The record is a 132-nucleotide RNA from Coturnix japonica, which matches "Small nucleolar RNA SNORA68" in Rfam. Rfam 15.1 lists 1,079 matches to the family in 643 species. From the family's description: U68 is a member of the H/ACA class of small nucleolar RNAs (snoRNAs) which act as guides in the the modification of uridines to pseudouridines.
RNA sequence: AAUGCACACAAAAACCCAAAGGAUGUUGUUCUUCAUAACAAUAUUCUUGUCGGGUGUGCAGAUAUUAAAUGCAUCUUGUCGCCUUUCUGGAGCUGAAGUGCUCUUGAAAGUGAAACUUGAGGUUCUACAUGA
Numbered sequence: 001a002a003u004g005c006a007c008a009c010a011a012a013a014a015c016c017c018a019a020a021g022g023a024u025g026u027u028g029u030u031c032u033u034c035a036u037a038a039c040a041a042u043a044u045u046c047u048u049g050u051c052g053g054g055u056g057u058g059c060a061g062a063u064a065u066u067a068a069a070u071g072c073a074u075c076u077u078g079u080c081g082c083c084u085u086u087c088u089g090g091a092g093c094u095g096a097a098g099u100g101c102u103c104u105u106g107a108a109a110g111u112g113a114a115a116c117u118u119g120a121g122g123u124u125c126u127a128c129a130u131g132a
Stems, first nucleotide, its partner, number of pairs: 003060007021046010071125001073123005083110005089104005